Rfam assigns this 113-nucleotide RNA from Renibacterium salmoninarum to the family "ZMP/ZTP riboswitch aptamer (pfl RNA motif)". Pairs were carried over by alignment from the consensus structure, which is taken from published work. The source organism's lineage runs through Bacteria, Actinomycetota, Actinomycetes, Renibacterium and Renibacterium salmoninarum.
[Rfam]
RNA sequence: UGACUAGGUCGCGACUGGCGUAAGGUGGUCAACCACCGGGGAGCGGCGUUGGACGCCUAUUUGACGGCGUUCGGCAGAGUGCAGACCAUGGAUCGAACGCCUGGGACCGGGGU
Dot-bracket structure: ...(.(.(((((..(([[[[[...((((....))))..))..))))).).)......................................((.((..]]]]]..)).)).....